[Rfam]
RNA sequence: AGCUGUAAUGGCUCAAUGGUGGAAUUGUACACCUUGGGAUUUCUGACUUUGGUUCAAUCCUCGCAGUCGGACGUAGGUUAGCAUGUCACGUUUCGGCGUGGCAAGGGGUACUCACCUUCCCGUGGGGCUCCGCACUGCGCGUCGGCGACAACCGUCAUCCUUCUCUCGCUUCCAGUUGCCGAGGCCGUCAAUCUUGGCGGUCUCAGAGAGAGGGACUCGGGGUUAACGUGUCCCGGUUAUUAUCGAUCUUCGCGGGGUUUGUUUGCGCGUUCGGGCACGAGAGAAAUCCGUGUUCCUGGGCGUGUGGCAAAGUAGUUACGGGUUCCUUGUGGGCCUCGCCUUGACCGCUGAAGGGGAGUUUCAUCCAGCACAGCGAGGGCGACCCGUGAUGGAGGCGGCCGGGAUAGCACUAGUUCUCCGAGUACAAGUGCAGACUGGGUUGGCCCUGUGCCAAUCUUAACGGGCGGUGUCGCUGAUAAUUACCCACCAGUAAAGGUACGUUGCUUGCAGCGUGGGGUGUACAAAACUAUUUUU
Numbered sequence: 001a002g003c004u005g006u007a008a009u010g011g012c013u014c015a016a017u018g019g020u021g022g023a024a025u026u027g028u029a030c031a032c033c034u035u036g037g038g039a040u041u042u043c044u045g046a047c048u049u050u051g052g053u054u055c056a057a058u059c060c061u062c063g064c065a066g067u068c069g070g071a072c073g074u075a076g077g078u079u080a081g082c083a084u085g086u087c088a089c090g091u092u093u094c095g096g097c098g099u100g101g102c103a104a105g106g107g108g109u110a111c112u113c114a115c116c117u118u119c120c121c122g123u124g125g126g127g128c129u130c131c132g133c134a135c136u137g138c139g140c141g142u143c144g145g146c147g148a149c150a151a152c153c154g155u156c157a158u159c160c161u162u163c164u165c166u167c168g169c170u171u172c173c174a175g176u177u178g179c180c181g182a183g184g185c186c187g188u189c190a191a192u193c194u195u196g197g198c199g200g201u202c203u204c205a206g207a208g209a210g211a212g213g214g215a216c217u218c219g220g221g222g223u224u225a226a227c228g229u230g231u232c233c234c235g236g237u238u239a240u241u242a243u244c245g246a247u248c249u250u251c252g253c254g255g256g257g258u259u260u261g262u263u264u265g266c267g268c269g270u271u272c273g274g275g276c277a278c279g280a281g282a283g284a285a286a287u288c289c290g291u292g293u294u295c296c297u298g299g300g301c302g303u304g305u306g307g308c309a310a311a312g313u314a315g316u317u318a319c320g321g322g323u324u325c326c327u328u329g330u331g332g333g334c335c336u337c338g339c340c341u342u343g344a345c346c347g348c349u350g351a352a353g354g355g356g357a358g359u360u361u362c363a364u365c366c367a368g369c370a371c372a373g374c375g376a377g378g379g380c381g382a383c384c385c386g387u388g389a390u391g392g393a394g395g396c397g398g399c400c401g402g403g404a405u406a407g408c409a410c411u412a413g414u415u416c417u418c419c420g421a422g423u424a425c426a427a428g429u430g431c432a433g434a435c436u437g438g439g440u441u442g443g444c445c446c447u448g449u450g451c452c453a454a455u456c457u458u459a460a461c462g463g464g465c466g467g468u469g470u471c472g473c474u475g476a477u478a479a480u481u482a483c484c485c486a487c488c489a490g491u492a493a494a495g496g497u498a499c500g501u502u503g504c505u506u507g508c509a510g511c512g513u514g515g516g517g518u519g520u521a522c523a524a525a526a527c528u529a530u531u532u533u534u
Stems, first nucleotide, its partner, number of pairs: 001013003018531005027522007035486004039481001041479001154468003158464002184201007220419002222416001228410004232403007247393003250389002253386004264306008273295007281288002307313002336382007346375005355366003
Fungal signal recognition particle RNA: a 534-nucleotide sequence from Zygosaccharomyces rouxii. Its family is annotated with SRP-dependent cotranslational protein targeting to membrane, signal sequence recognition, signal recognition particle, plasma membrane targeting and signal recognition particle, endoplasmic reticulum targeting in the Gene Ontology. The organism belongs to Zygosaccharomyces, within Eukaryota. The family has 50 seed sequences and 748 matches in Rfam 15.1. Clan: SRP clan. The match comes from Rfam's covariance-model search (129 bits).